[Rfam]
RNA: Glycine riboswitch aptamer
Organism: Neobacillus rhizophilus
RNA sequence: AUGAUUGUUGUGGGAGAGUGUAAUAUCUACAUCUACCACCGAAGGAGCAAGUUCCAAAAAAACCCUUGGAACCAAUCUCUCAGGUAAAAGAACCAUAACAGGACG
Numbered sequence: 001a002u003g004a005u006u007g008u009u010g011u012g013g014g015a016g017a018g019u020g021u022a023a024u025a026u027c028u029a030c031a032u033c034u035a036c037c038a039c040c041g042a043a044g045g046a047g048c049a050a051g052u053u054c055c056a057a058a059a060a061a062a063c064c065c066u067u068g069g070a071a072c073c074a075a076u077c078u079c080u081c082a083g084g085u086a087a088a089a090g091a092a093c094c095a096u097a098a099c100a101g102g103a104c105g
Stems, first nucleotide, its partner, number of pairs: 006100008020036003038085003041081002045079003051072007